A member of the RNA family "Burkholderia RNA 7 (anti-hemB)" from Polaromonas sp. JS666, 91 nucleotides long.

RNA sequence: UCCCGCUUUUCCUCCCUGAGCGGGGCCUUUGCGUGUGACAGCAAAAAGGCUUACCAGCCCGGUUGGCUUCGUGCCAACCGGGCAUUUUUUU
Numbered sequence: 001u002c003c004c005g006c007u008u009u010u011c012c013u014c015c016c017u018g019a020g021c022g023g024g025g026c027c028u029u030u031g032c033g034u035g036u037g038a039c040a041g042c043a044a045a046a047a048g049g050c051u052u053a054c055c056a057g058c059c060c061g062g063u064u065g066g067c068u069u070c071g072u073g074c075c076a077a078c079c080g081g082g083c084a085u086u087u088u089u090u091u
Stems, first nucleotide, its partner, number of pairs: 002024006025050004029044003057083011
Dot-bracket structure: .((((((...........))))))(((((((..........)))..))))......(((((((((((.....)))))))))))........

From the family's description: This RNA motif was identified by computational search in b-proteobacteria Burkholderia. Co-purified with Hfq, expression confirmed by Northern blot. A reference for the family is Weinberg et al. (2007), "Identification of 22 candidate structured RNAs in bacteria using the CMfinder comparative genomics pipeline", Nucleic Acids Res. Rfam's curators put it in the seed alignment. Rfam classes the family as a small RNA.